MIR812 microRNA precursor family: a 189-nucleotide RNA sequence from Oryza meridionalis. Pairs were carried over by alignment from the consensus structure, which was predicted with RNAalifold.
RNA sequence: UUCAAGUGUAACCAUGAUUUCCAAUGACCAAUUUUGAUUGUCCGUCUUAUUUAAAAUAAUUUAAAAACAUAAGUUACACAUAAAGUACUAUUAAUGUUUCAUUAUCUCAUGACAAUAAAAAUACUAAUUAUAAAAAAAUUAAAAACGAACGAUUAAAAUUAAGCACGAAAACUUAUGGUUGCAUUUAAA
Dot-bracket structure: .............................((((((((((((.(((.((.(..........................................................................................))).))).)))))))))))).............................